[Rfam]
Source information:
A member of the RNA family "tRNA" from Tepiditoga spiralis, 72 nucleotides long. Rfam classes the family as a transfer RNA.
RNA sequence: GGCCCCAUAGGAUAACGGUUAAUCCAUCGGAUUCUCAGUCCGAGAAUCGGGGUUCGAUUCCCCGUGGGGCUA
Numbered sequence: 001g002g003c004c005c006c007a008u009a010g011g012a013u014a015a016c017g018g019u020u021a022a023u024c025c026a027u028c029g030g031a032u033u034c035u036c037a038g039u040c041c042g043a044g045a046a047u048c049g050g051g052g053u054u055c056g057a058u059u060c061c062c063c064g065u066g067g068g069g070c071u072a
Base pairs, nucleotide, nucleotide: 001071002070003069004068005067006066007065010025011024012023013022027043028042029041030040031039048064049063050062051061052060